[Rfam]
Annotation:
c-di-GMP-I riboswitch aptamer: an 89-nucleotide RNA sequence from Desulfosporosinus fructosivorans. The base pairs follow the family's consensus structure, which is taken from published work. From the family's description: GEMM was predicted in a large-scale screen for bacterial structured RNA regulatory elements. It scores 68 bits against the family's covariance model.

Nucleotides: 089
Stems, first nucleotide, its partner, number of pairs: 012037002017032006040083004045079003048074003055068004
Number, partner (000 for none) and nucleotide at each position: 001000a002000u003000u004000g005000u006000g007000a008000a009000a010000a011000g012037g013036c014000a015000a016000a017032c018031u019030a020029g021028c022027u023000g024000a025000a026000a027022g028021g029020u030019u031018g032017g033000g034000g035000c036013g037012c038000a039000a040083a041082g042081u043080u044000a045079g046078a047077a048074g049073u050072c051000u052000a053000a054000g055068g056067c057066g058065c059000u060000a061000u062000a063000u064000g065058g066057u067056g068055c069000u070000a071000u072050g073049a074048u075000g076000g077047u078046u079045c080043g081042g082041c083040u084000g085000c086000c087000a088000a089000g